[Rfam]
RNA sequence: CUCUAAUACUAUUUCAGAUUGUGUAUUUUACGGAAUGCAUACAGCAAAGUAUUAGUAAUAAAGAGAUUUAUUCCUUCCUUUUCUAAAAAGGUAAAAAUGAAACAGUAUAAUAUAUGUUAGUAAUUUUGAUGAAUAUAUAUGUUAUAC
Dot-bracket structure: ..(((((((...((.....(((((((((....)))))))))....)).))))))).....................((((.......)))).............(((((((((((((.....((....))....)))))))))))))
RNA: RT-14 RNA